[Rfam]
RNA sequence: UUUGAGGGGAAUGUUGGCUGGCUCGAGGCUUUUCAGUUUCACAAAGGAAGUUCAGUCUUAAUUGUAUGAACUAUAAGGCUUCGGACCAGGCUUCAUUCCCCUCAAA
Numbered sequence: 001u002u003u004g005a006g007g008g009g010a011a012u013g014u015u016g017g018c019u020g021g022c023u024c025g026a027g028g029c030u031u032u033u034c035a036g037u038u039u040c041a042c043a044a045a046g047g048a049a050g051u052u053c054a055g056u057c058u059u060a061a062u063u064g065u066a067u068g069a070a071c072u073a074u075a076a077g078g079c080u081u082c083g084g085a086c087c088a089g090g091c092u093u094c095a096u097u098c099c100c101c102u103c104a105a106a
Stems, first nucleotide, its partner, number of pairs: 001106013016091001018089004024083003
The record is a 106-nucleotide sequence, which matches "mir-166 microRNA precursor family" in Rfam. Its family is annotated with RISC complex and miRNA-mediated post-transcriptional gene silencing in the Gene Ontology. On this family, see Reinhart et al., Genes Dev 2002: "MicroRNAs in plants". Rfam describes the family as follows. This family represents the plant microRNA (miRNA) precursor mir-166. It is one of the family's seed sequences.